[Rfam]
RNA sequence: CAUUUUCUUCAGGGCAGGGUGCAAUUCCCGACCGGCGGUACAGCCCGCGAACCAUGUAUAUGGUUGAUCUGGUGUAAUUCCAGAGCCGACAGUAUAGUCUGGAUGGAAGAAGAAAGUU
Numbered sequence: 001c002a003u004u005u006u007c008u009u010c011a012g013g014g015c016a017g018g019g020u021g022c023a024a025u026u027c028c029c030g031a032c033c034g035g036c037g038g039u040a041c042a043g044c045c046c047g048c049g050a051a052c053c054a055u056g057u058a059u060a061u062g063g064u065u066g067a068u069c070u071g072g073u074g075u076a077a078u079u080c081c082a083g084a085g086c087c088g089a090c091a092g093u094a095u096a097g098u099c100u101g102g103a104u105g106g107a108a109g110a111a112g113a114a115a116g117u118u
Stems, first nucleotide, its partner, number of pairs: 003116008017029003031098002033088002035048004043086002051064003068084005090101003
RNA: FMN riboswitch aptamer (RFN element)
Organism: Paramaledivibacter caminithermalis